[Rfam]
RNA sequence: UGCCAUGUGGUAGCUGAUGCAUUCGGGUUACCUUGGUCCGUGGGGUAAUCUCGAAGUUUACACAUGGCUACAUAAAUUUCGGGUUUUGCUUCCAUCAUUGUACAAUUUGGUUACAGUGGUGACAAUGAGGCCUGAAACAUAU
Numbered sequence: 001u002g003c004c005a006u007g008u009g010g011u012a013g014c015u016g017a018u019g020c021a022u023u024c025g026g027g028u029u030a031c032c033u034u035g036g037u038c039c040g041u042g043g044g045g046u047a048a049u050c051u052c053g054a055a056g057u058u059u060a061c062a063c064a065u066g067g068c069u070a071c072a073u074a075a076a077u078u079u080c081g082g083g084u085u086u087u088g089c090u091u092c093c094a095u096c097a098u099u100g101u102a103c104a105a106u107u108u109g110g111u112u113a114c115a116g117u118g119g120u121g122a123c124a125a126u127g128a129g130g131c132c133u134g135a136a137a138c139a140u141a142u
Stems, first nucleotide, its partner, number of pairs: 002068003006064003024053002026050009079135005093121006

Shown here is a 142-nucleotide sequence from Synaphobranchus kaupii, a member of the family "Small nucleolar RNA SNORA1". NCBI's taxonomy places the organism under Eukaryota, Bilateria, Teleostomi, Elopocephalai, Synaphobranchus. The family has 29 seed sequences and 1,282 matches in Rfam 15.1. The family's RNA type in Rfam is H/ACA-box small nucleolar RNA. Its family is annotated with nucleolus and RNA processing in the Gene Ontology. ACA1 is a member of the H/ACA class of snoRNA that guide the sites of modification of uridines to pseudouridines.